[Rfam]
RNA sequence: AUUGCGGCUCAGAACCUUCAAGCUGAGUGAGGAUCGCGCUUUGGCGCUUUGGUCCUUUGACCGCGGAUGAACCGGCAACGGCUAUCGAAGCGUCUGGAGAAGGUCGGGUCGUCCCGGCCUUUUUUAUU
Numbered sequence: 001a002u003u004g005c006g007g008c009u010c011a012g013a014a015c016c017u018u019c020a021a022g023c024u025g026a027g028u029g030a031g032g033a034u035c036g037c038g039c040u041u042u043g044g045c046g047c048u049u050u051g052g053u054c055c056u057u058u059g060a061c062c063g064c065g066g067a068u069g070a071a072c073c074g075g076c077a078a079c080g081g082c083u084a085u086c087g088a089a090g091c092g093u094c095u096g097g098a099g100a101a102g103g104u105c106g107g108g109u110c111g112u113c114c115c116g117g118c119c120u121u122u123u124u125u126a127u128u
Stems, first nucleotide, its partner, number of pairs: 004039002012035002015032002043094007052083001054081002058077002061075003095126013
Rfam assigns this 128-nucleotide RNA sequence to the family "Alphaproteobacterial sRNA ar35". By type it is a small RNA. The family has 13 seed sequences and 266 matches in Rfam 15.1.